[Rfam]
RNA sequence: UUUAUCCUUGUCUUUGGGGAGCAAAGUAUUCAAUGAUCGUUUAGUGAGAGUACUGUUGCUAAAACCCAUAACAAAAUAUUUUACCGCAUCCGUAAUAUUUACGAGAUGCAAUUUUUGGAUAG
Numbered sequence: 001u002u003u004a005u006c007c008u009u010g011u012c013u014u015u016g017g018g019g020a021g022c023a024a025a026g027u028a029u030u031c032a033a034u035g036a037u038c039g040u041u042u043a044g045u046g047a048g049a050g051u052a053c054u055g056u057u058g059c060u061a062a063a064a065c066c067c068a069u070a071a072c073a074a075a076a077u078a079u080u081u082u083a084c085c086g087c088a089u090c091c092g093u094a095a096u097a098u099u100u101a102c103g104a105g106a107u108g109c110a111a112u113u114u115u116u117g118g119a120u121a122g
Stems, first nucleotide, its partner, number of pairs: 005019004021059004025054007038044001086109005092102004
RNA: U4atac minor spliceosomal RNA
Organism: Mycetomoellerius zeteki